[Rfam]
Overview
Rfam assigns this 107-nucleotide sequence from Novosphingobium arvoryzae to the family "Glycine riboswitch aptamer". The pairing is the family consensus, mapped onto this sequence. The organism belongs to Novosphingobium, within Bacteria.
RNA sequence: UAGCGACGCUCUGGAAAGUGCUCAUGCCGCAACCGGCAGGGCCGCCGAAGGGGUAACCGGACUACCAUCCGGGAAAGCUCUCAGGUUUCCGUGACAGAGGGGGCACC
Number, nucleotide and partner (000 for none) at each position: 001u000002a000003g000004c000005g000006a000007c101008g000009c099010u098011c097012u096013g095014g000015a000016a000017a000018g000019u000020g042021c041022u040023c039024a000025u000026g000027c000028c000029g000030c000031a000032a000033c000034c000035g000036g000037c000038a000039g023040g022041g021042c020043c000044g086045c085046c084047g082048a081049a000050g000051g080052g079053g078054u000055a000056a000057c073058c072059g000060g000061a000062c000063u000064a000065c000066c000067a000068u000069c000070c000071g000072g058073g057074a000075a000076a000077g000078c053079u052080c051081u048082c047083a000084g046085g045086u044087u000088u000089c000090c000091g000092u000093g000094a000095c013096a012097g011098a010099g009100g000101g007102g000103g000104c000105a000106c000107c000